[Rfam]
RNA sequence: UCGAAGGUAAUUUGUACCGAUUCAAGGCUAGCUUUUCGUACUAAACUACUUUGAGUCGGUACGAAUCAUCUUCC
Number, nucleotide and partner (000 for none) at each position: 001u000002c000003g000004a000005a000006g000007g069008u068009a000010a066011u065012u064013u063014g062015u061016a060017c059018c058019g057020a056021u055022u054023c053024a052025a000026g050027g049028c000029u000030a000031g047032c000033u045034u044035u043036u000037c000038g000039u000040a000041c000042u000043a035044a034045a033046c000047u031048a000049c027050u026051u000052u024053g023054a022055g021056u020057c019058g018059g017060u016061a015062c014063g013064a012065a011066u010067c000068a008069u007070c000071u000072u000073c000074c000